[Rfam]
A member of the RNA family "Guanidine-I riboswitch aptamer" from Planococcus halotolerans, 97 nucleotides long.
RNA sequence: GACAAUGUUUUCUAGGGUUCCGCAAGCUUUUGCUUGGACUGGUCCGAGAGAAAACGCACAGCUUGCUGUGACACGGAAGGACAAAAGCCUGGGAGAA
Numbered sequence: 001g002a003c004a005a006u007g008u009u010u011u012c013u014a015g016g017g018u019u020c021c022g023c024a025a026g027c028u029u030u031u032g033c034u035u036g037g038a039c040u041g042g043u044c045c046g047a048g049a050g051a052a053a054a055c056g057c058a059c060a061g062c063u064u065g066c067u068g069u070g071a072c073a074c075g076g077a078a079g080g081a082c083a084a085a086a087g088c089c090u091g092g093g094a095g096a097a
Stems, first nucleotide, its partner, number of pairs: 007055006015045002020042002022039001023036005057070005072092001074095001078090003
The pairing is the family consensus, mapped onto this sequence.
It scores 86 bits against the family's covariance model.